[Rfam]
The record is a 249-nucleotide part of an RNA from Candidatus Syntropharchaeum butanivorans, which matches "Archaeal large subunit ribosomal RNA" in Rfam. The match comes from Rfam's covariance-model search (2967 bits). The base pairs follow the family's consensus structure, which is taken from published work. Lineage of the source: Archaea > Methanobacteriati > Halobacteriota > Candidatus Syntropharchaeales > Candidatus Syntropharchaeum.
RNA sequence: GAGGUCUGAAGGUAAGUUGCCCUUAGUACGAGAGGAACAGGGCAACGGCGCCUCUGGUCGAUCGGUUGUCCGACAGGGCAUUGCCGAGCAGCUACGCGCCAAGGGAUAAGGGCUGAAAGCAUCUAAGCCCGAAACCCGACCUGAAAAGAGACCUCUUUAAGGGCAUGGGUAGAAGACCCGUUUGAUAGGGCCGGGGUGUAAGCACCAAGGGCAACCGAGGUGUUCAGCCUGCGGCUACUAACGCCCGUA
Dot-bracket structure: (((((((..((((..((((((((...............))))))))(((((...(((....((((((((((....)))))..)))))....))).)))))..(((....(((((...........)))))....))).))))......))))))).....(((((((((.......)))))....(((((((((((.....(((((..(......)..)))))....))).))))).)))..))))...